The record is an 87-nucleotide RNA sequence from Hathewaya proteolytica, which matches "c-di-GMP-I riboswitch aptamer" in Rfam. NCBI's taxonomy places the organism under Bacteria, Bacillota, Clostridia, Eubacteriales, Hathewaya proteolytica. The match comes from Rfam's covariance-model search (71 bits). GEMM was predicted in a large-scale screen for bacterial structured RNA regulatory elements.
[Rfam]
RNA sequence: ACACGAUAAUGGCAAAACACAUGAAAAUGUGUGACGCAAAGCAAUAGGGUCUAAACGCUAAUACGCGCAUGGCAGCCUGACACCGAA
Numbered sequence: 001a002c003a004c005g006a007u008a009a010u011g012g013c014a015a016a017a018c019a020c021a022u023g024a025a026a027a028u029g030u031g032u033g034a035c036g037c038a039a040a041g042c043a044a045u046a047g048g049g050u051c052u053a054a055a056c057g058c059u060a061a062u063a064c065g066c067g068c069a070u071g072g073c074a075g076c077c078u079g080a081c082a083c084c085g086a087a
Base pairs, nucleotide, nucleotide: 012037013036017032018031019030020029021028022027042079043078047077048076049073050072051071056067057066058065